[Rfam]
RNA: Plant signal recognition particle RNA
RNA sequence: UCCGAGCUAAGUAACGUGAGGUUGUAACUCGAGUGAGGGCAUUAAGGUGAUUGGACUUGGGUCACACACUCUCGUUGGGCUUGUGUUGCACAAACUGAUUUGCCCAUUCCAAGUUGGGAGUUGGGCUAUGUGGAAUGGGCGAAGGCCUGUGCCACUUGGUUCCUAGAGUGGAGAGUACCUCGUCAGGCUGGUUUCACAGAGCAGCGAAAACCUCCCUCUCUCGACAGUGGAAGGAUAACGAGACAGGUGCUCCAUCAGUCCUCUACGGCCAGAUUGGUCCAAUGGACAAUCACUUUU
Numbered sequence: 001u002c003c004g005a006g007c008u009a010a011g012u013a014a015c016g017u018g019a020g021g022u023u024g025u026a027a028c029u030c031g032a033g034u035g036a037g038g039g040c041a042u043u044a045a046g047g048u049g050a051u052u053g054g055a056c057u058u059g060g061g062u063c064a065c066a067c068a069c070u071c072u073c074g075u076u077g078g079g080c081u082u083g084u085g086u087u088g089c090a091c092a093a094a095c096u097g098a099u100u101u102g103c104c105c106a107u108u109c110c111a112a113g114u115u116g117g118g119a120g121u122u123g124g125g126c127u128a129u130g131u132g133g134a135a136u137g138g139g140c141g142a143a144g145g146c147c148u149g150u151g152c153c154a155c156u157u158g159g160u161u162c163c164u165a166g167a168g169u170g171g172a173g174a175g176u177a178c179c180u181c182g183u184c185a186g187g188c189u190g191g192u193u194u195c196a197c198a199g200a201g202c203a204g205c206g207a208a209a210a211c212c213u214c215c216c217u218c219u220c221u222c223g224a225c226a227g228u229g230g231a232a233g234g235a236u237a238a239c240g241a242g243a244c245a246g247g248u249g250c251u252c253c254a255u256c257a258g259u260c261c262u263c264u265a266c267g268g269c270c271a272g273a274u275u276g277g278u279c280c281a282a283u284g285g286a287c288a289a290u291c292a293c294u295u296u297u
Base pairs, nucleotide, nucleotide: 002039003038004023005022007020008019010017028037029036030035044296045295046294047293048292049291050290051289052288053287056284058281059280060279064278065277067276068275070273071272072271074269075268076267077261078260079259080258081257083255084254085253088250090248091247095246096245097244099242100241101240102239104234105233107232108231109230110229111228113225114224115223116222117221118220119219120218123162124161125160126159127158128157130155131154132153133152135150136149137148138147139146140145163168170215171214172213173212180207181206182205183204188199189198190197